Rfam assigns this 172-nucleotide RNA sequence from Solimonas fluminis to the family "Manganese Mn2+ riboswitch aptamer (yybP-ykoY)".
The base pairs follow the family's consensus structure.
This RNA was originally discovered in E. coli during a large scale screen and was named SraF. The family was later found to exist upstream of related families of protein genes in many bacteria, including the the yybP and ykoK genes in B. subtilis. The specific functions of these proteins are unknown, but this structured RNA element may be involved in their genetic regulation as a riboswitch.

Nucleotides: 172
Base pairs, nucleotide, nucleotide: 025038026037027036040081041080042079043078044077045076046075047074048073049072057071058070059069060068061067
Number, partner (000 for none) and nucleotide at each position: 001000g002000c003000g004000a005000c006000c007000g008000u009000u010000u011000u012000u013000g014000g015000g016000g017000a018000g019000u020000a021000g022000c023000g024000c025038c026037u027036c028000g029000c030000g031000c032000a033000a034000g035000c036027g037026a038025g039000g040081g041080g042079a043078u044077g045076c046075g047074u048073c049072a050000a051000c052000a053000u054000a055000c056000u057071u058070g059069g060068c061067c062000c063000u064000c065000a066000u067061g068060g069059c070058c071057a072049u073048g074047g075046u076045g077044c078043a079042u080041c081040c082000a083000g084000c085000c086000u087000u088000u089000c090000c091000g092000g093000c094000a095000u096000g097000c098000g099000a100000g101000a102000c103000c104000a105000a106000g107000a108000c109000a110000g111000c112000c113000a114000u115000g116000c117000u118000g119000c120000g121000c122000c123000g124000c125000c126000g127000g128000g129000c130000g131000c132000c133000u134000g135000c136000g137000u138000g139000g140000g141000u142000g143000u144000c145000u146000u147000g148000c149000g150000u151000c152000c153000a154000u155000c156000u157000c158000g159000c160000g161000c162000c163000c164000g165000g166000c167000c168000g169000g170000a171000g172000u